Shown here is a 107-nucleotide sequence from Fictibacillus macauensis, a member of the family "SAM riboswitch aptamer (S box leader)". The base pairs follow the family's consensus structure, which is taken from published work.

RNA sequence: UUCUUAUCCAGAGAGGCGGAGGGACUUGACCCAAUGAAACCUCGGCAACAGACUCUUUAUUGAGCACUGUGCCAAUUUCAACAAGCGCUGCGCUUGAAAGAUAAGAU
Numbered sequence: 001u002u003c004u005u006a007u008c009c010a011g012a013g014a015g016g017c018g019g020a021g022g023g024a025c026u027u028g029a030c031c032c033a034a035u036g037a038a039a040c041c042u043c044g045g046c047a048a049c050a051g052a053c054u055c056u057u058u059a060u061u062g063a064g065c066a067c068u069g070u071g072c073c074a075a076u077u078u079c080a081a082c083a084a085g086c087g088c089u090g091c092g093c094u095u096g097a098a099a100g101a102u103a104a105g106a107u
Stems, first nucleotide, its partner, number of pairs: 002106007013043004021032003026081004044073004049069002051065001054062001077099001082096006